RNA sequence: GAUCCCUCCGACAUGACACAACAUCCUGCAGCGAUGUUGUGCGACCUGCAGUGUCAGUCGAAGGCAUC
Numbered sequence: 001g002a003u004c005c006c007u008c009c010g011a012c013a014u015g016a017c018a019c020a021a022c023a024u025c026c027u028g029c030a031g032c033g034a035u036g037u038u039g040u041g042c043g044a045c046c047u048g049c050a051g052u053g054u055c056a057g058u059c060g061a062a063g064g065c066a067u068c
Stems, first nucleotide, its partner, number of pairs: 001068003005064002009060004020038006043055003
Shown here is a 68-nucleotide RNA sequence from Emergomyces africanus, a member of the family "bZIP non canonical Hac1/Xbp1 intron". The source organism's lineage runs through Eukaryota, Opisthokonta, Onygenales, Ajellomycetaceae and Emergomyces. The base pairs follow the family's consensus structure, which was predicted with RNAfold. It is annotated as a small RNA. About the family: bZIP intron RNA is a non-canonical intron that was first reported in HAC1 gene in yeast and XBP1 gene in Metazoa.